[Rfam]
RNA sequence: AGAAAAGUGGCUGAGUGGUUAAAAGCACCAAAUUGCUAAUUUGGUUUAUAUAUAUAUUAUAUACAAGGGUUCGAAUCCCUUCUUUUCUG
Numbered sequence: 001a002g003a004a005a006a007g008u009g010g011c012u013g014a015g016u017g018g019u020u021a022a023a024a025g026c027a028c029c030a031a032a033u034u035g036c037u038a039a040u041u042u043g044g045u046u047u048a049u050a051u052a053u054a055u056a057u058u059a060u061a062u063a064c065a066a067g068g069g070u071u072c073g074a075a076u077c078c079c080u081u082c083u084u085u086u087c088u089g
Stems, first nucleotide, its partner, number of pairs: 001088007010026003028044005065081005